The record is an 83-nucleotide sequence from Tupaia belangeri, which matches "small Cajal body-specific RNA 18" in Rfam. The family has 20 seed sequences and 406 matches in Rfam 15.1. For this family Rfam cites "Cajal body-specific small nuclear RNAs: a novel class of 2'-O-methylation and pseudouridylation guide RNAs" (Darzacq et al., EMBO J, 2002). The source organism's lineage runs through Eukaryota, Metazoa, Craniata, Tupaiidae and Tupaia belangeri. scaRNAs are a specific class of small nuclear RNAs which localise to the Cajal bodies and guide the modification of RNA polymerase II transcribed spliceosomal RNAs U1, U2, U4, U5 and U12. This C/D box domain U91 (also known as U4-8) was identified by Darzacq and is predicted to guide the 2'O-ribose methylation of U4 snRNA C8.

[Rfam]
RNA sequence: UGGCCAAUGACGAGGUGGACAACAUGCAAUCUGAGUUCUGGGCACCAGAUGAUGGAGUGUUUUCUAAGGCUAAACUGAAGUCG
Numbered sequence: 001u002g003g004c005c006a007a008u009g010a011c012g013a014g015g016u017g018g019a020c021a022a023c024a025u026g027c028a029a030u031c032u033g034a035g036u037u038c039u040g041g042g043c044a045c046c047a048g049a050u051g052a053u054g055g056a057g058u059g060u061u062u063u064c065u066a067a068g069g070c071u072a073a074a075c076u077g078a079a080g081u082c083g
Stems, first nucleotide, its partner, number of pairs: 002082003038048004